[Rfam]
RNA sequence: UUUCUAGCCACAGUUUACUAAACUAUGAAUGGCAAGAUUGAAAUUGUUUGUUAUCUGUCUGAUCGAACAAAAACGCAGCAAUGGCGUAAGACGUAAUGUUUAAUCAAACAAUUUAUGGGCUGCGAGUUGCAGCUUACUGGAUUGGGUGAAAUCUGUACCGGUUUAUUACAGUAUCCCAAUAAAGAGUGCUGUAUUUAAAUGAAAUUCAGACUCGCCGACAAAUAUAGGCGCCUCUAUACAAACGAUAGCCGUGAGGCUGGCGGCUUUGUAAAAGACACGAGGCCAUCGGUUACCAGUAGUGCAUCUCUUUUUGCUCGCAGCUCUAUACCAA
Numbered sequence: 001u002u003u004c005u006a007g008c009c010a011c012a013g014u015u016u017a018c019u020a021a022a023c024u025a026u027g028a029a030u031g032g033c034a035a036g037a038u039u040g041a042a043a044u045u046g047u048u049u050g051u052u053a054u055c056u057g058u059c060u061g062a063u064c065g066a067a068c069a070a071a072a073a074c075g076c077a078g079c080a081a082u083g084g085c086g087u088a089a090g091a092c093g094u095a096a097u098g099u100u101u102a103a104u105c106a107a108a109c110a111a112u113u114u115a116u117g118g119g120c121u122g123c124g125a126g127u128u129g130c131a132g133c134u135u136a137c138u139g140g141a142u143u144g145g146g147u148g149a150a151a152u153c154u155g156u157a158c159c160g161g162u163u164u165a166u167u168a169c170a171g172u173a174u175c176c177c178a179a180u181a182a183a184g185a186g187u188g189c190u191g192u193a194u195u196u197a198a199a200u201g202a203a204a205u206u207c208a209g210a211c212u213c214g215c216c217g218a219c220a221a222a223u224a225u226a227g228g229c230g231c232c233u234c235u236a237u238a239c240a241a242a243c244g245a246u247a248g249c250c251g252u253g254a255g256g257c258u259g260g261c262g263g264c265u266u267u268g269u270a271a272a273a274g275a276c277a278c279g280a281g282g283c284c285a286u287c288g289g290u291u292a293c294c295a296g297u298a299g300u301g302c303a304u305c306u307c308u309u310u311u312u313g314c315u316c317g318c319a320g321c322u323c324u325a326u327a328c329c330a331a
Base pairs, nucleotide, nucleotide: 003037004036005035007033008032014027016025017024056110057109058108060106061105062104066100067099068098069097073094074093075092078085079084117323118322119321120320121319122318123317124316125315126314127313135298136297137296138295139294140293144176145175146174147173148172153171154170155169156168157167185212186211187210189209190208191207194204195203196202214290215289216288217287218286230283231282232281233280234279243262244261246259247258248257249256250255
RNA: RNase E 5' UTR element
Organism: Xenorhabdus bovienii